[Rfam]
RNA sequence: GGGGGCAAACGCGGACGCCCGUCCAGACGGCUUGCCGUCCAAGAUCCGC
Numbered sequence: 001g002g003g004g005g006c007a008a009a010c011g012c013g014g015a016c017g018c019c020c021g022u023c024c025a026g027a028c029g030g031c032u033u034g035c036c037g038u039c040c041a042a043g044a045u046c047c048g049c
Base pairs, nucleotide, nucleotide: 001022003020004019005018006017011049012048013047014046015045026039027038028037029036030035
Dot-bracket structure: [.[[[[....(((((.]]]].]...(((((....))))).....)))))